[Rfam]
RNA sequence: GAGGCACUCCUAUGGAGCAGGACUUGCUUCAGUGGGGCUUUGGUGAACACUGAGUCUUCCCCUUGAGUGUGUCUCU
Number, nucleotide and partner (000 for none) at each position: 001g075002a074003g073004g072005c071006a070007c069008u000009c067010c000011u065012a064013u000014g062015g061016a000017g059018c000019a057020g000021g056022a055023c054024u000025u000026g000027c000028u000029u053030c052031a051032g050033u049034g048035g000036g000037g044038c043039u000040u000041u000042g000043g038044u037045g000046a000047a000048c034049a033050c032051u031052g030053a029054g023055u022056c021057u019058u000059c017060c000061c015062c014063u000064u012065g011066a000067g009068u000069g007070u006071g005072u004073c003074u002075c001076u000
Rfam assigns this 76-nucleotide RNA from Myotis brandtii to the family "mir-9229 microRNA precursor family". The family's consensus secondary structure was predicted with RNAalifold. Its family is annotated with RISC complex and miRNA-mediated post-transcriptional gene silencing in the Gene Ontology.